The record is a 298-nucleotide RNA sequence from Drosophila persimilis, which matches "Metazoan signal recognition particle RNA" in Rfam.
Rfam 15.1 lists 383,523 matches to the family in 1,221 species.
Lineage of the source: Eukaryota > Insecta > Brachycera > Ephydroidea > Sophophora.
The literature on the family includes a 2002 paper in Curr Opin Struct Biol by Wild et al., "Towards the structure of the mammalian signal recognition particle".
The family's consensus secondary structure is taken from published work.
Rfam's curators put it in the seed alignment.
RNA sequence: ACUGGAAGGUUGGCAUCUUCUGUAAUCACGCUUCUGUGAGGUCAGAUUGUGGGAUGGCCUGAGGCUGGGAAUCACUGUGUAACGGACCAGCUCAUGUUGACGGAACGUCCGCACUAAGCUUGCCAUCAAUAUGGGUGCCAUGGAGGAGUCCGCGGCAUUCAGGUUGGCUAAGGAGGGAUGAACCGGGCCAGGGGUGAAAACCAGCAGCCAAGAGUUCCCGUGGUAGGCAGUAGUGGGAUAGCGUACCGGAGUGAACUGCCGUUUCCAGCCCACCAACAUGGUUGGACCACAAUCUUUU
Numbered sequence: 001a002c003u004g005g006a007a008g009g010u011u012g013g014c015a016u017c018u019u020c021u022g023u024a025a026u027c028a029c030g031c032u033u034c035u036g037u038g039a040g041g042u043c044a045g046a047u048u049g050u051g052g053g054a055u056g057g058c059c060u061g062a063g064g065c066u067g068g069g070a071a072u073c074a075c076u077g078u079g080u081a082a083c084g085g086a087c088c089a090g091c092u093c094a095u096g097u098u099g100a101c102g103g104a105a106c107g108u109c110c111g112c113a114c115u116a117a118g119c120u121u122g123c124c125a126u127c128a129a130u131a132u133g134g135g136u137g138c139c140a141u142g143g144a145g146g147a148g149u150c151c152g153c154g155g156c157a158u159u160c161a162g163g164u165u166g167g168c169u170a171a172g173g174a175g176g177g178a179u180g181a182a183c184c185g186g187g188c189c190a191g192g193g194g195u196g197a198a199a200a201c202c203a204g205c206a207g208c209c210a211a212g213a214g215u216u217c218c219c220g221u222g223g224u225a226g227g228c229a230g231u232a233g234u235g236g237g238a239u240a241g242c243g244u245a246c247c248g249g250a251g252u253g254a255a256c257u258g259c260c261g262u263u264u265c266c267a268g269c270c271c272a273c274c275a276a277c278a279u280g281g282u283u284g285g286a287c288c289a290c291a292a293u294c295u296u297u298u
Stems, first nucleotide, its partner, number of pairs: 001042003004021007026039003044295009055284005063274002066272004075268002077265001081263003088258003092254004097249001101248003105244004109237002112235005118228009127166004132161008141152004168172001175218005186209003193202003